[Rfam]
RNA sequence: CAGUGGCCGUGAAGAUGCGGCCAACUCAGAGCGGGACAAAAAGACCCCGUGGAGCUUUACUACAGCUUGCCAUCGGGCCGUGCAGGCGGAUGCGUAGGAUAGGUGGGAGGCGGAGAAGGCGGACUUGCGGGUCUGCUGGAGCCGACGGUGAAAUACCACUCUUCGGUCUGCGCUGCCCUCACCGGCGGAAGGCUGGGACGGUGGCUGGCGGGUAGUUUGACUGGGGCGGUCGCCUCCUAAAGGGUAACGGAGGCGCGCAAUGGCGCCCUCAGGCGGGAUGGUCAUCCGCCGUGGAGUGCAACGGCAGAAGGGCGCUUGACUGCGAGGCAGACAGGCCGAGCAGGGAUGAAAGUCGGCCGUAGUGAUCCCACAGUACCGGGUGGAAGGGCUGUGGCUUAACGGAUAAAAGCUACCCCGGGGAUAACAGGCUCAGACCGCCCAAGAGUUCAUAUCGACGGCGGAGCGUGGCACCUCGAUGUCGGCUCGUCGCAUCCUGGGGCUGGAGUAGGUCCCAAGGGUUGGGCUGUUCGCCCAUGAAAGCGGCACGCGAGCUGGGUUCAGAACGUCGUGAGACAGUUCGGUCUCUAUCCGCUCUGAGCG
Numbered sequence: 001c002a003g004u005g006g007c008c009g010u011g012a013a014g015a016u017g018c019g020g021c022c023a024a025c026u027c028a029g030a031g032c033g034g035g036a037c038a039a040a041a042a043g044a045c046c047c048c049g050u051g052g053a054g055c056u057u058u059a060c061u062a063c064a065g066c067u068u069g070c071c072a073u074c075g076g077g078c079c080g081u082g083c084a085g086g087c088g089g090a091u092g093c094g095u096a097g098g099a100u101a102g103g104u105g106g107g108a109g110g111c112g113g114a115g116a117a118g119g120c121g122g123a124c125u126u127g128c129g130g131g132u133c134u135g136c137u138g139g140a141g142c143c144g145a146c147g148g149u150g151a152a153a154u155a156c157c158a159c160u161c162u163u164c165g166g167u168c169u170g171c172g173c174u175g176c177c178c179u180c181a182c183c184g185g186c187g188g189a190a191g192g193c194u195g196g197g198a199c200g201g202u203g204g205c206u207g208g209c210g211g212g213u214a215g216u217u218u219g220a221c222u223g224g225g226g227c228g229g230u231c232g233c234c235u236c237c238u239a240a241a242g243g244g245u246a247a248c249g250g251a252g253g254c255g256c257g258c259a260a261u262g263g264c265g266c267c268c269u270c271a272g273g274c275g276g277g278a279u280g281g282u283c284a285u286c287c288g289c290c291g292u293g294g295a296g297u298g299c300a301a302c303g304g305c306a307g308a309a310g311g312g313c314g315c316u317u318g319a320c321u322g323c324g325a326g327g328c329a330g331a332c333a334g335g336c337c338g339a340g341c342a343g344g345g346a347u348g349a350a351a352g353u354c355g356g357c358c359g360u361a362g363u364g365a366u367c368c369c370a371c372a373g374u375a376c377c378g379g380g381u382g383g384a385a386g387g388g389c390u391g392u393g394g395c396u397u398a399a400c401g402g403a404u405a406a407a408a409g410c411u412a413c414c415c416c417g418g419g420g421a422u423a424a425c426a427g428g429c430u431c432a433g434a435c436c437g438c439c440c441a442a443g444a445g446u447u448c449a450u451a452u453c454g455a456c457g458g459c460g461g462a463g464c465g466u467g468g469c470a471c472c473u474c475g476a477u478g479u480c481g482g483c484u485c486g487u488c489g490c491a492u493c494c495u496g497g498g499g500c501u502g503g504a505g506u507a508g509g510u511c512c513c514a515a516g517g518g519u520u521g522g523g524c525u526g527u528u529c530g531c532c533c534a535u536g537a538a539a540g541c542g543g544c545a546c547g548c549g550a551g552c553u554g555g556g557u558u559c560a561g562a563a564c565g566u567c568g569u570g571a572g573a574c575a576g577u578u579c580g581g582u583c584u585c586u587a588u589c590c591g592c593u594c595u596g597a598g599c600g
Stems, first nucleotide, its partner, number of pairs: 005022005025598008034590003039584001046419004051415002053411005059216004066208002069205004075178004080173008089164002092161001102160005109143003118137008182196005219231004232254006255400001257357002263315006269295002272290006296305002320343004326337003345354003368394007376387002428469003432466001435461005443453002480555001481553004485547001486544005493518002496513006520534005561579004565574003
Annotation: This 600-nucleotide part of an RNA from Chloroflexus aurantiacus belongs to the Rfam family "Bacterial large subunit ribosomal RNA". Lineage of the source: Bacteria > Bacillati > Chloroflexia > Chloroflexaceae > Chloroflexus aurantiacus. The base pairs follow the family's consensus structure, which is taken from published work.